Rfam assigns this 61-nucleotide sequence from Pristionchus pacificus to the family "mir-8364 microRNA precursor family".

RNA sequence: UCUCCAUUUCACAUGCUCUCACAUCGGUCCAAGAAGCGAGAGAGUGUGUGAAAUGAAGAGA
Numbered sequence: 001u002c003u004c005c006a007u008u009u010c011a012c013a014u015g016c017u018c019u020c021a022c023a024u025c026g027g028u029c030c031a032a033g034a035a036g037c038g039a040g041a042g043a044g045u046g047u048g049u050g051a052a053a054u055g056a057a058g059a060g061a
Base pairs, nucleotide, nucleotide: 001059002058003057005055006054007053010050012048013047014046015045016044017043019041020040022038
Pairs were carried over by alignment from the consensus structure, which was predicted with RNAalifold. The organism belongs to Pristionchus, within Eukaryota. Rfam 15.1 lists 3,320 matches to the family in 2 species. It scores 67 bits against the family's covariance model.